The family of this 385-nucleotide part of an RNA from Methanomassiliicoccales archaeon RumEn M2 is "Archaeal large subunit ribosomal RNA".
RNA sequence: GAGAGUAGCAGCAAAGUACGGUGAGAAUCCGUAUCGCCGCAGGGGCAAGGGUUCCUUGGCAAUGUUCGUCAGCCAAGGGUUAGUCGAUCCUAAGGCAAUUCUUAAUUGAAAUUGUCGAAAGGGAAACUGGUUAAUAUUCCAGUACUGUAAAUUCCUUUGUCCGUAUCCCGACAGAUAGGGAUAGUUGGAGUACAACAGCCAUUGUAUUGAAGCAUCGAAGUCUCCGGAGAACCGUCAUGGUGAGAAAGAGAUGAACUUGUGAUCAGGCGAGCGUAGGCUCGCUUCCGAUGAUUCCCCGUUUCCGUGAAAAAGGAUACGGAGUCAGCUUUUACAAUCGUACCAAGAACCGACACAGGUGUCCCUAGGUGAGUAGCCUAAGGCGUGU
Dot-bracket structure: ...............((((((.......))))))((((....((((..((...((((((...((.....)).))))))......(((.((...((((((((......)).))))))....))...(((((........)))))..((((((...............((....((((.((((..(((((((((((........))))))...(((......((((......(((.....)))......))))......)))...........(....).......)))))...)))).))))..........))..............)))))).)))..)).....((......)).)))).((((.......)))).))))...

A search with the family's covariance model found it, with a score of 2741 bits. Taxonomically the source falls in Methanomassiliicoccales (Archaea, Methanobacteriati, Thermoplasmatota, Thermoplasmata).